[Rfam]
RNA sequence: GGGAUAUGACAGCGGUCAGUUCUCGCAAUCAAACAUGCGUGACGGGUGUCCAUCCCACUCCCUGGUUACGACAACAGGGCACUCCCAUCUCUACCUAUCUGAUCCC
Numbered sequence: 001g002g003g004a005u006a007u008g009a010c011a012g013c014g015g016u017c018a019g020u021u022c023u024c025g026c027a028a029u030c031a032a033a034c035a036u037g038c039g040u041g042a043c044g045g046g047u048g049u050c051c052a053u054c055c056c057a058c059u060c061c062c063u064g065g066u067u068a069c070g071a072c073a074a075c076a077g078g079g080c081a082c083u084c085c086c087a088u089c090u091c092u093a094c095c096u097a098u099c100u101g102a103u104c105c106c
Base pairs, nucleotide, nucleotide: 001106002105003104004103014095015094016093022041024039025038026037044084045083046082047081048080049079050078062077063076065075066074
The family of this 106-nucleotide RNA from Salix dunnii is "Small nucleolar RNA Z279/snoR105/snoR108". From the family's description: This family includes the plant snoRNAs known as Z279, snoR105 and snoR108. On this family, see Marker et al., Curr Biol 2002: "Experimental RNomics: identification of 140 candidates for small non-messenger RNAs in the plant Arabidopsis thaliana". It is annotated as a C/D-box small nucleolar RNA. The family is grouped with related families in Rfam's "snoU13 clan".